Bacterial RNase P class A: a 407-nucleotide sequence from Rubrobacter radiotolerans. By type it is a ribozyme.
RNA sequence: CGGGCCGUCCGACCCAUCGCUGCGCGGGAGGGUAGGUCCUCCGCGCGUAGAGCAAAGUCCGGACUCGUAGAAGAGACCGCUCGGGCCAACAACCCGAGGGGCGGCGGCGAGAGCCGGCCGUCACGUCAAGUGCAACAGAGAGCAGACCAGCCGAUGGUCCCGGGCAUCGCCCGGGACACAGGUGAUGGGUGAAAGGGUGGGGUAAGAGCCCACCGGCGGUAUCCCGCGAGGGACCGGCCAGGUAAACGACCGGCGCGAGCAAGCCAAAGUAGCGAAGGACCUUUCCCUGCGGGGAUGGUCCGGAGCAGGUAGGCGCAGCCCCUCCGAGGAGGGGCCGGGGCUUCGGAAGAGGUCCCGAGAUGGAUGAUGGGAUAGAGCAGAAUCCGGCUUACGGGGCGGCCCGGGCU
Number, nucleotide and partner (000 for none) at each position: 001c403002g402003g401004g400005c399006c398007g397008u396009c395010c394011g392012a000013c371014c370015c369016a368017u367018c366019g000020c050021u049022g048023c047024g046025c045026g044027g000028g042029a000030g000031g000032g000033u000034a000035g000036g000037u000038c000039c000040u000041c000042c028043g000044c026045g025046c024047g023048u022049a021050g020051a000052g000053c000054a000055a390056a389057g388058u000059c387060c386061g385062g384063a383064c259065u258066c257067g256068u000069a000070g314071a000072a000073g000074a000075g000076a000077c253078c252079g251080c098081u097082c096083g095084g094085g000086c000087c000088a000089a000090c000091a000092a000093c000094c084095c083096g082097a081098g080099g124100g122101g121102c120103g119104g118105c117106g000107g000108c000109g000110a000111g000112a000113g000114c000115c000116g000117g105118c104119c103120g102121u101122c100123a000124c099125g250126u249127c000128a000129a000130g247131u246132g243133c242134a000135a000136c000137a000138g000139a000140g000141a000142g000143c000144a000145g000146a000147c188148c187149a000150g000151c000152c182153g000154a000155u178156g177157g000158u000159c000160c000161c000162g000163g000164g000165c000166a000167u000168c000169g000170c000171c000172c000173g000174g000175g000176a000177c156178a155179c000180a000181g000182g152183u000184g000185a000186u000187g148188g147189g000190u000191g000192a000193a000194a000195g000196g214197g213198u212199g211200g210201g209202g000203u000204a000205a000206g000207a000208g000209c201210c200211c199212a198213c197214c196215g000216g238217c236218g235219g234220u233221a000222u000223c232224c231225c230226g000227c000228g000229a000230g225231g224232g223233a220234c219235c218236g217237g000238c216239c000240a000241g000242g133243u132244a000245a000246a131247c130248g000249a126250c125251c079252g078253g077254c000255g000256c067257g066258a065259g064260c000261a000262a000263g335264c334265c333266a000267a000268a000269g000270u000271a000272g000273c326274g325275a000276a323277g322278g321279a000280c000281c000282u000283u000284u000285c000286c000287c000288u000289g000290c000291g000292g000293g000294g000295a000296u000297g000298g000299u000300c000301c000302g000303g000304a000305g319306c318307a000308g316309g000310u000311a000312g000313g000314c070315g000316c308317a000318g306319c305320c000321c278322c277323u276324c000325c274326g273327a000328g000329g000330a000331g000332g000333g265334g264335c263336c000337g000338g355339g354340g353341c352342u351343u350344c349345g000346g000347a000348a000349g344350a343351g342352g341353u340354c339355c338356c000357g000358a000359g000360a000361u000362g000363g000364a000365u000366g018367a017368u016369g015370g014371g013372a000373u000374a000375g000376a000377g000378c000379a000380g000381a000382a000383u063384c062385c061386g060387g059388c057389u056390u055391a000392c011393g000394g010395g009396g008397c007398g006399g005400c004401c003402c002403g001404g000405g000406c000407u000

Lineage of the source: Bacteria > Actinomycetota > Rubrobacteria > Rubrobacterales > Rubrobacter.